Record summary:
The record is a 158-nucleotide RNA from Aegilops tauschii, which matches "MIR5062 microRNA precursor family" in Rfam. Rfam's curators put it in the seed alignment. Rfam links the family to the GO terms miRNA-mediated post-transcriptional gene silencing and RISC complex. Lineage of the source: Eukaryota > Petrosaviidae > commelinids > Poaceae > Aegilops. The family has 2 seed sequences and 11 matches in Rfam 15.1.

[Rfam]
RNA sequence: CGUAGCUUCUUGAACCUUAGGGAAAAGCCGCAUAACACCAUUAACUUGAAAACCACUUAUCUUAUCCCAGAACUGCUCCUACCACAAUAUAAGGGGUAAAAAAUGGUUUUUAGUUUGUGAGGUCAUGUGGAUUUUUCACCAAGAUUCAAGUGGUUAUC
Numbered sequence: 001c002g003u004a005g006c007u008u009c010u011u012g013a014a015c016c017u018u019a020g021g022g023a024a025a026a027g028c029c030g031c032a033u034a035a036c037a038c039c040a041u042u043a044a045c046u047u048g049a050a051a052a053c054c055a056c057u058u059a060u061c062u063u064a065u066c067c068c069a070g071a072a073c074u075g076c077u078c079c080u081a082c083c084a085c086a087a088u089a090u091a092a093g094g095g096g097u098a099a100a101a102a103a104u105g106g107u108u109u110u111u112a113g114u115u116u117g118u119g120a121g122g123u124c125a126u127g128u129g130g131a132u133u134u135u136u137c138a139c140c141a142a143g144a145u146u147c148a149a150g151u152g153g154u155u156a157u158c
Base pairs, nucleotide, nucleotide: 002157003156004155005154006153007152009150010149011148012147013146014145016143017142018141020140021139022137023136024135025134026133027132028130029129030128031127032126033125035123036122039119040118041117043115044114045113046112048111049110050109051108052107053106054105055104057103058102060101062099063098064097065096066095067094068093